The family of this 444-nucleotide part of an RNA from Thermoplasmatales archaeon A-plasma is "Archaeal large subunit ribosomal RNA". Rfam links the family to the GO terms ribosome and structural constituent of ribosome. Clan: LSU clan.
[Rfam]
RNA sequence: CCCCCCGAUACUACCCGCAGGUAGACUUCGGUGGAGAUGCUCGGCGAGGUAGAGCGACCGAUUAGCAGGUUAGCAGUCGAAAGACUGCGCCAGCUUAUCAAACUCCGAACUUGUCGAGAUCGUAGAUACCGGGUGCUAGGGUACAUGGGAUAAGCUCUGUACCCGUGAAGGGAACAUCCUAGACGGGGGUUAAGGUCCCUAAAACUGACUAAGUGCAAAUUAAAGGGGUUUGUGGCCAAAGACAGUGUGGAGGUUGGCUUAGAAGCAGCCAUCCUUUAAAGAGUGCGUAACAGCUCACUCACCGAGGCUACAUGCCCCGAAGAUGGAAGGGGCUAAAGUCAGUUACCGAGACCUCCGAGCACCGAGAGGUGAUCUGGUAGGGGGGCGUGCCGCAUGGACGGAAGCUUCUUCGAGAGGAGGAGUGGACCGUGUGGUAUCGUGGAU
Numbered sequence: 001c002c003c004c005c006c007g008a009u010a011c012u013a014c015c016c017g018c019a020g021g022u023a024g025a026c027u028u029c030g031g032u033g034g035a036g037a038u039g040c041u042c043g044g045c046g047a048g049g050u051a052g053a054g055c056g057a058c059c060g061a062u063u064a065g066c067a068g069g070u071u072a073g074c075a076g077u078c079g080a081a082a083g084a085c086u087g088c089g090c091c092a093g094c095u096u097a098u099c100a101a102a103c104u105c106c107g108a109a110c111u112u113g114u115c116g117a118g119a120u121c122g123u124a125g126a127u128a129c130c131g132g133g134u135g136c137u138a139g140g141g142u143a144c145a146u147g148g149g150a151u152a153a154g155c156u157c158u159g160u161a162c163c164c165g166u167g168a169a170g171g172g173a174a175c176a177u178c179c180u181a182g183a184c185g186g187g188g189g190u191u192a193a194g195g196u197c198c199c200u201a202a203a204a205c206u207g208a209c210u211a212a213g214u215g216c217a218a219a220u221u222a223a224a225g226g227g228g229u230u231u232g233u234g235g236c237c238a239a240a241g242a243c244a245g246u247g248u249g250g251a252g253g254u255u256g257g258c259u260u261a262g263a264a265g266c267a268g269c270c271a272u273c274c275u276u277u278a279a280a281g282a283g284u285g286c287g288u289a290a291c292a293g294c295u296c297a298c299u300c301a302c303c304g305a306g307g308c309u310a311c312a313u314g315c316c317c318c319g320a321a322g323a324u325g326g327a328a329g330g331g332g333c334u335a336a337a338g339u340c341a342g343u344u345a346c347c348g349a350g351a352c353c354u355c356c357g358a359g360c361a362c363c364g365a366g367a368g369g370u371g372a373u374c375u376g377g378u379a380g381g382g383g384g385g386c387g388u389g390c391c392g393c394a395u396g397g398a399c400g401g402a403a404g405c406u407u408c409u410u411c412g413a414g415a416g417g418a419g420g421a422g423u424g425g426a427c428c429g430u431g432u433g434g435u436a437u438c439g440u441g442g443a444u
Stems, first nucleotide, its partner, number of pairs: 001385006011024005026135001027133006036121003040118008052106001053104002060099003064095003068091002073088006139164007147157002169180003184357007194347003203344007225318005231312007245302003249298001251275003256270003276280001281296001285294002358375002360371004386439001388436010404423008